[Rfam]
RNA sequence: AGCUUAGCUGUGAUAUCAGGGUCCAGUAAUAAAAAACCCCGUAAUUCGGGGUUUUUUAUUAUCUGAAACAUGACCAUUCAGGUAUUUACUGGGCUUUAUGCCCUUUUUUU
Numbered sequence: 001a002g003c004u005u006a007g008c009u010g011u012g013a014u015a016u017c018a019g020g021g022u023c024c025a026g027u028a029a030u031a032a033a034a035a036a037c038c039c040c041g042u043a044a045u046u047c048g049g050g051g052u053u054u055u056u057u058a059u060u061a062u063c064u065g066a067a068a069c070a071u072g073a074c075c076a077u078u079c080a081g082g083u084a085u086u087u088a089c090u091g092g093g094c095u096u097u098a099u100g101c102c103c104u105u106u107u108u109u110u
Base pairs, nucleotide, nucleotide: 033055034054035053036052037051038050039049040048041047091103092102093101094100
The record is a 110-nucleotide RNA from Photobacterium jeanii, which matches "Gammaprotebacteria rimP leader" in Rfam. The organism belongs to Photobacterium, within Bacteria.